The family of this 98-nucleotide RNA sequence from Insectozyma verbasci is "Small nucleolar RNA Z122".
Rfam 15.1 lists 822 matches to the family in 247 species.
The family's RNA type in Rfam is C/D-box small nucleolar RNA.
RNA sequence: UAAGUAAAUUGAUGAUAACCUUUUUUCAUCUUUCCAUUGAAAAUUCAUGAAAAUUUUAAAUUUUAACAAUCUGAUUUGCACGUCAGACUGAUUACUUA
Number, nucleotide and partner (000 for none) at each position: 001u098002a097003a096004g095005u094006a093007a092008a000009u000010u000011g000012a000013u000014g000015a000016u000017a000018a000019c000020c000021u000022u000023u000024u000025u000026u000027c000028a000029u000030c000031u000032u000033u000034c000035c000036a000037u000038u000039g000040a000041a000042a000043a000044u000045u000046c000047a000048u000049g000050a000051a000052a000053a000054u000055u000056u000057u000058a000059a000060a000061u000062u000063u000064u000065a000066a000067c000068a000069a000070u000071c000072u000073g000074a000075u000076u000077u000078g000079c000080a000081c000082g000083u000084c000085a000086g000087a000088c000089u000090g000091a000092u007093u006094a005095c004096u003097u002098a001